[Rfam]
RNA sequence: AUCUUCUCAUUGAGCUCCCCUCUGUCGAUUGGUGGCAAUUUAUGGAUUUGCAUGAGAAGAAGAGGCAAUUCACAGUUAGCAUUAUUUUAGCUUCUGUCUUCACAGAGGUAUAUUCUGCUGAUCUGUGAGACAUUC
Numbered sequence: 001a002u003c004u005u006c007u008c009a010u011u012g013a014g015c016u017c018c019c020c021u022c023u024g025u026c027g028a029u030u031g032g033u034g035g036c037a038a039u040u041u042a043u044g045g046a047u048u049u050g051c052a053u054g055a056g057a058a059g060a061a062g063a064g065g066c067a068a069u070u071c072a073c074a075g076u077u078a079g080c081a082u083u084a085u086u087u088u089a090g091c092u093u094c095u096g097u098c099u100u101c102a103c104a105g106a107g108g109u110a111u112a113u114u115c116u117g118c119u120g121a122u123c124u125g126u127g128a129g130a131c132a133u134u135c
Stems, first nucleotide, its partner, number of pairs: 003059006014051002016046003023037004070128006091108006
The record is a 135-nucleotide sequence from Crocuta crocuta, which matches "Small nucleolar RNA SNORA75" in Rfam. U23 belongs to the H/ACA class of snoRNAs. snoRNAs bind a number of proteins (including dyskerin, Gar1p and Nop10p in the case of the H/ACA class) to form snoRNP complexes. NCBI's taxonomy places the organism under Eukaryota, Eumetazoa, Tetrapoda, Boreoeutheria, Crocuta. Rfam 15.1 lists 414 matches to the family in 310 species. Its family is annotated with nucleolus and RNA processing in the Gene Ontology. The family's RNA type in Rfam is H/ACA-box small nucleolar RNA. On this family, see Ganot et al., Genes Dev 1997: "The family of box ACA small nucleolar RNAs is defined by an evolutionarily conserved secondary structure and ubiquitous sequence elements essential for RNA accumulation". The family's consensus secondary structure was predicted with PFOLD.